[Rfam]
RNA: Bacterial RNase P class A
Organism: Miniimonas arenae
RNA sequence: UGAGCCGGCCAGGCGGCCGCGUCCCCCGAUCGCCUCGGCGUGCGGGGGCCGAGGAACGUCCGGGCUCCACAGGGCAGGGUGGUGGGUAACGCCCACCCGGGGUGACCCGCGGGACAGUGCCACAGAGAACAGACCGCCCGUCGCGCCCCUCGGGGCACGACGAGUAAGGGUGAAACGGUGAGGUAAGAGCUCACCAGCGCACCGGGUGACCGGUGCGGCUCGGUAAACCCCACCCGGAGCAAGGCCAGACAGGGAGCGAGCUGCCCGCUCGAUGCUCCCGGGUAGGCCGCUGGAGGCGUGCGGCGACGUACGCCCGAGAUGGAUGGUCGCCACCCGCCGUCGGGCGACCGACGGCGGGGACAGAACCCGGCGUACCGGCCGGCUCAUCCC
Numbered sequence: 001u002g003a004g005c006c007g008g009c010c011a012g013g014c015g016g017c018c019g020c021g022u023c024c025c026c027c028g029a030u031c032g033c034c035u036c037g038g039c040g041u042g043c044g045g046g047g048g049c050c051g052a053g054g055a056a057c058g059u060c061c062g063g064g065c066u067c068c069a070c071a072g073g074g075c076a077g078g079g080u081g082g083u084g085g086g087u088a089a090c091g092c093c094c095a096c097c098c099g100g101g102g103u104g105a106c107c108c109g110c111g112g113g114a115c116a117g118u119g120c121c122a123c124a125g126a127g128a129a130c131a132g133a134c135c136g137c138c139c140g141u142c143g144c145g146c147c148c149c150u151c152g153g154g155g156c157a158c159g160a161c162g163a164g165u166a167a168g169g170g171u172g173a174a175a176c177g178g179u180g181a182g183g184u185a186a187g188a189g190c191u192c193a194c195c196a197g198c199g200c201a202c203c204g205g206g207u208g209a210c211c212g213g214u215g216c217g218g219c220u221c222g223g224u225a226a227a228c229c230c231c232a233c234c235c236g237g238a239g240c241a242a243g244g245c246c247a248g249a250c251a252g253g254g255a256g257c258g259a260g261c262u263g264c265c266c267g268c269u270c271g272a273u274g275c276u277c278c279c280g281g282g283u284a285g286g287c288c289g290c291u292g293g294a295g296g297c298g299u300g301c302g303g304c305g306a307c308g309u310a311c312g313c314c315c316g317a318g319a320u321g322g323a324u325g326g327u328c329g330c331c332a333c334c335c336g337c338c339g340u341c342g343g344g345c346g347a348c349c350g351a352c353g354g355c356g357g358g359g360a361c362a363g364a365a366c367c368c369g370g371c372g373u374a375c376c377g378g379c380c381g382g383c384u385c386a387u388c389c390c
Stems, first nucleotide, its partner, number of pairs: 001386010012331007020051002023048006056373003060370005065239004072266004077235005082096005097111001098109004112230002117228002119224003134169002136165002139162005177195006197219001198217008243288004253279002256276001257271005295314008